[Rfam]
Notes:
Rfam assigns this 96-nucleotide RNA to the family "S10-Clostridia ribosomal protein leader". Rfam classes the family as a cis-regulatory leader.

RNA sequence: UGAUAGCGAAGAAGCAUAAGGUUGCUGCAACGGAAAAUACAUAAUCCCUGCAGGUUUUUAUGUGGAGCGAAUGUCAAGUUAGUAAACUGACGACAA
Numbered sequence: 001u002g003a004u005a006g007c008g009a010a011g012a013a014g015c016a017u018a019a020g021g022u023u024g025c026u027g028c029a030a031c032g033g034a035a036a037a038u039a040c041a042u043a044a045u046c047c048c049u050g051c052a053g054g055u056u057u058u059u060a061u062g063u064g065g066a067g068c069g070a071a072u073g074u075c076a077a078g079u080u081a082g083u084a085a086a087c088u089g090a091c092g093a094c095a096a
Stems, first nucleotide, its partner, number of pairs: 014063003018059004025053005072095004078091004